mir-965 microRNA precursor family: a 71-nucleotide RNA from Diabrotica balteata. Rfam 15.1 lists 224 matches to the family in 178 species. Pairs were carried over by alignment from the consensus structure, which was predicted with RNAalifold.

[Rfam]
RNA sequence: UUUUUAAAAGGAGAAGCUACAUGUUAUAUAGUAGUAUAGUCUAUAUAACAUGUAGCUUCUCCUUUUAAAUU
Numbered sequence: 001u002u003u004u005u006a007a008a009a010g011g012a013g014a015a016g017c018u019a020c021a022u023g024u025u026a027u028a029u030a031g032u033a034g035u036a037u038a039g040u041c042u043a044u045a046u047a048a049c050a051u052g053u054a055g056c057u058u059c060u061c062c063u064u065u066u067a068a069a070u071u
Base pairs, nucleotide, nucleotide: 003069004068005067006066007065009063010062011061013059014058017055018054019053020052021051024048027047028046029045030044
Its family is annotated with miRNA-mediated post-transcriptional gene silencing and RISC complex in the Gene Ontology.
On this family, see Huang et al., Bioorg Khim 2012: "The regulation of silkworm fibroin L chain production by miRNA-965 and miRNA-1926 in insect cells".